This 96-nucleotide RNA from Treponema denticola belongs to the Rfam family "TD-2 RNA". Its Rfam clan is "TD (Treponema denticola) motifs". On this family, see Weinberg et al., Nucleic Acids Res 2007: "Identification of 22 candidate structured RNAs in bacteria using the CMfinder comparative genomics pipeline". The organism belongs to Treponema denticola, within Bacteria. It is one of the family's seed sequences. The family has 36 seed sequences and 310 matches in Rfam 15.1.

RNA sequence: GCGGACAUGGAUGUCCGUGGUUCCAACUUCAAGAGUUUGCGCUUGCCACAAACUCUAAGCUGAAAAUCGGACACGGAUGUCCGAUUUUCAGCGAAC
Numbered sequence: 001g002c003g004g005a006c007a008u009g010g011a012u013g014u015c016c017g018u019g020g021u022u023c024c025a026a027c028u029u030c031a032a033g034a035g036u037u038u039g040c041g042c043u044u045g046c047c048a049c050a051a052a053c054u055c056u057a058a059g060c061u062g063a064a065a066a067u068c069g070g071a072c073a074c075g076g077a078u079g080u081c082c083g084a085u086u087u088u089c090a091g092c093g094a095a096c
Base pairs, nucleotide, nucleotide: 001018002017003016004015005014006013032056033055034054035053036052037051038050039049041047059092060091061090062089063088064087065086066085067084068083069082070081071080072079